The record is a 76-nucleotide RNA, which matches "L2-Alphaproteobacteria ribosomal protein leader" in Rfam.
The sequence is in the family's curated seed alignment.
Pairs were carried over by alignment from the consensus structure, which is taken from published work.
RNA sequence: GGGCACCUACGGGGGCCUUUUUACAUCAGGAUCGGGGCCGCGCGCCUUCGGUCCGCCAAGCAAACGGAAGAAGCUA
Numbered sequence: 001g002g003g004c005a006c007c008u009a010c011g012g013g014g015g016c017c018u019u020u021u022u023a024c025a026u027c028a029g030g031a032u033c034g035g036g037g038c039c040g041c042g043c044g045c046c047u048u049c050g051g052u053c054c055g056c057c058a059a060g061c062a063a064a065c066g067g068a069a070g071a072a073g074c075u076a
Stems, first nucleotide, its partner, number of pairs: 001018004006014003029054005034046002